The record is a 179-nucleotide RNA sequence from Salipaludibacillus neizhouensis, which matches "Lysine riboswitch aptamer" in Rfam. The base pairs follow the family's consensus structure, which is taken from published work.
RNA sequence: CGGUGAGGUAGAGGCGCAAAGUUUAUUACUAGGAGACUGGAGUUAGGACAACGAGGAAAGUCUUUGAAAGGAAACGUUGCCGAAGCAUUGUGAUCGUGUCCUACGAUGCAACAGCUGGGGUAAUAUUCAAUAAAUAUUACACUGUCACUAUCUGUUAAUAGUGGAGAACUACUGAACUG
Numbered sequence: 001c002g003g004u005g006a007g008g009u010a011g012a013g014g015c016g017c018a019a020a021g022u023u024u025a026u027u028a029c030u031a032g033g034a035g036a037c038u039g040g041a042g043u044u045a046g047g048a049c050a051a052c053g054a055g056g057a058a059a060g061u062c063u064u065u066g067a068a069a070g071g072a073a074a075c076g077u078u079g080c081c082g083a084a085g086c087a088u089u090g091u092g093a094u095c096g097u098g099u100c101c102u103a104c105g106a107u108g109c110a111a112c113a114g115c116u117g118g119g120g121u122a123a124u125a126u127u128c129a130a131u132a133a134a135u136a137u138u139a140c141a142c143u144g145u146c147a148c149u150a151u152c153u154g155u156u157a158a159u160a161g162u163g164g165a166g167a168a169c170u171a172c173u174g175a176a177c178u179g
Stems, first nucleotide, its partner, number of pairs: 007173005016080004021075004032065007084116003089111001093107004117143002120140008145164007

Gene Ontology term of the family: lysine biosynthetic process. The source organism's lineage runs through Bacteria, Bacilli, Caryophanales, Bacillaceae and Salipaludibacillus.